Rfam assigns this 120-nucleotide sequence from Braya humilis to the family "Plastid-psbA-1 3UTR RNA". The family's RNA type in Rfam is cis-regulatory element. Rfam's curators write: Plastid psbA-1 is a non-coding RNA (ncRNA) present in plastids. It was identified in inverted repeat sequences in the 3 prime untranslate region (3UTR) of photosystem II quinone-binding protein (psbA). On this family, see Richter et al., Plant Commun 2023: "Retrograde signaling in plants: A critical review focusing on the GUN pathway and beyond". Its Rfam clan is "Plastid-psbA 3UTR RNA clan". The organism belongs to Braya, within Eukaryota. The sequence is in the family's curated seed alignment.

RNA sequence: GUUGAAGCUCCAUCUACAAAUGGAUAAUUCUUUAGCGUUAGUCUAGACCUAGUUUAGUAUAGUAAUAGUAAAAAACGAGCAAUAUAAGCCGUCUUUAAAGAAGGCUUAUAUUGCUCAUUU
Numbered sequence: 001g002u003u004g005a006a007g008c009u010c011c012a013u014c015u016a017c018a019a020a021u022g023g024a025u026a027a028u029u030c031u032u033u034a035g036c037g038u039u040a041g042u043c044u045a046g047a048c049c050u051a052g053u054u055u056a057g058u059a060u061a062g063u064a065a066u067a068g069u070a071a072a073a074a075a076c077g078a079g080c081a082a083u084a085u086a087a088g089c090c091g092u093c094u095u096u097a098a099a100g101a102a103g104g105c106u107u108a109u110a111u112u113g114c115u116c117a118u119u120u
Stems, first nucleotide, its partner, number of pairs: 009024005073120003077116009091105004
Dot-bracket structure: ........(((((......)))))................................................(((.(((((((((.....((((.......))))..))))))))).)))